gut-2 RNA: a 48-nucleotide sequence.

RNA sequence: UUCCGUUGAUGAAGCGGCAUCAACGAAGAGCCAAGCGGGGCUGAUAGA
Numbered sequence: 001u002u003c004c005g006u007u008g009a010u011g012a013a014g015c016g017g018c019a020u021c022a023a024c025g026a027a028g029a030g031c032c033a034a035g036c037g038g039g040g041c042u043g044a045u046a047g048a
Stems, first nucleotide, its partner, number of pairs: 004025008029042004

The sequence is in the family's curated seed alignment.